[Rfam]
RNA sequence: ACAAUGAGAUUUCUUCAUGAAAGAGUUGAAGUUGGCUGAAUUAUUUUGCUUCAGGCAAUGGGGAGAUUCCAAUGA
Numbered sequence: 001a002c003a004a005u006g007a008g009a010u011u012u013c014u015u016c017a018u019g020a021a022a023g024a025g026u027u028g029a030a031g032u033u034g035g036c037u038g039a040a041u042u043a044u045u046u047u048g049c050u051u052c053a054g055g056c057a058a059u060g061g062g063g064a065g066a067u068u069c070c071a072a073u074g075a
Stems, first nucleotide, its partner, number of pairs: 012072001013031004032058003036054005059071003
Dot-bracket structure: ...........(((((...........))))(((.(((((.........))))).)))(((.......))))...